RNA: 6C RNA
RNA sequence: CCGGACCCGGCUCAUCCCCCCCGAGCCGGACCGUAGACGGCCCCCGCUCCCCCCCAGCGGGGGCCGUUCCAC
Numbered sequence: 001c002c003g004g005a006c007c008c009g010g011c012u013c014a015u016c017c018c019c020c021c022c023g024a025g026c027c028g029g030a031c032c033g034u035a036g037a038c039g040g041c042c043c044c045c046g047c048u049c050c051c052c053c054c055c056a057g058c059g060g061g062g063g064c065c066g067u068u069c070c071a072c
Stems, first nucleotide, its partner, number of pairs: 003034001004032001007029007036068012